RNA sequence: CACUCAUCCAGAGUGGGCGAGAGAAUCGGCUCGUAGACCCCACGGCAACCUCCGGAGCGCCGGGAAGGUGCCAAAUCCGACAGCGUUGUUACGCUGGUAGAUGAGGA
Number, nucleotide and partner (000 for none) at each position: 001c000002a000003c105004u104005c103006a102007u101008c100009c000010a000011g000012a000013g043014u042015g041016g040017g039018c000019g000020a000021g032022a031023g030024a000025a000026u080027c079028g078029g077030c023031u022032c021033g000034u000035a000036g000037a000038c000039c017040c016041c015042a014043c013044g072045g071046c070047a069048a000049c068050c067051u064052c063053c062054g061055g000056a000057g000058c000059g000060c000061c054062g053063g052064g051065a000066a000067g050068g049069u047070g046071c045072c044073a000074a000075a000076u099077c029078c028079g027080a026081c096082a095083g094084c093085g092086u091087u000088g000089u000090u000091a086092c085093g084094c083095u082096g081097g000098u000099a076100g008101a007102u006103g005104a004105g003106g000107a000
Rfam assigns this 107-nucleotide RNA sequence from Phototrophicus methaneseepsis to the family "SAM riboswitch aptamer (S box leader)". A reference for the family is Daldrop and Lilley (2013), "The plasticity of a structural motif in RNA: structural polymorphism of a kink turn as a function of its environment", RNA. A search with the family's covariance model found it, with a score of 82 bits.